[Rfam]
RNA: mraW RNA
RNA sequence: ACGACCUCGUUGCCUGUGACUCCCAGCCGUUCGCCCUGACACACUUCCCCGGUGCCAGGUCGAAGCGGGUGGGGAUCAGGGGCAACGAAUCCCAGAUC
Numbered sequence: 001a002c003g004a005c006c007u008c009g010u011u012g013c014c015u016g017u018g019a020c021u022c023c024c025a026g027c028c029g030u031u032c033g034c035c036c037u038g039a040c041a042c043a044c045u046u047c048c049c050c051g052g053u054g055c056c057a058g059g060u061c062g063a064a065g066c067g068g069g070u071g072g073g074g075a076u077c078a079g080g081g082g083c084a085a086c087g088a089a090u091c092c093c094a095g096a097u098c
Stems, first nucleotide, its partner, number of pairs: 010085006018077002021074005027068004031063003035059004040054003